[Rfam]
RNA sequence: GGGAUGUUGUUAUGCACUGGAUUUAUAUAGAGGUCUGGUAACCAGCCAAACCUUUU
Numbered sequence: 001g002g003g004a005u006g007u008u009g010u011u012a013u014g015c016a017c018u019g020g021a022u023u024u025a026u027a028u029a030g031a032g033g034u035c036u037g038g039u040a041a042c043c044a045g046c047c048a049a050a051c052c053u054u055u056u
Stems, first nucleotide, its partner, number of pairs: 002018002005016003030054005036048004
Shown here is a 56-nucleotide RNA sequence from Nostoc sp. T09, a member of the family "Cyanobacteria heterocyst sRNA".
Rfam classes the family as a small RNA.